This 58-nucleotide RNA sequence from Rhizobium sp. YS-1r belongs to the Rfam family "terC RNA". The match comes from Rfam's covariance-model search (57 bits). The base pairs follow the family's consensus structure, which is taken from published work. By type it is a cis-regulatory element.
RNA sequence: CACCAGGACCGGGCCCCUCUGGCAGUUCAUAUCUGAGCUGUGAUGUCGGACUGGAAUU
Number, nucleotide and partner (000 for none) at each position: 001c000002a000003c000004c000005a000006g052007g051008a000009c049010c048011g047012g046013g000014c000015c000016c000017c000018u000019c000020u000021g000022g041023c040024a039025g038026u037027u036028c035029a034030u000031a000032u000033c000034u029035g028036a027037g026038c025039u024040g023041u022042g000043a000044u000045g000046u012047c011048g010049g009050a000051c007052u006053g000054g000055a000056a000057u000058u000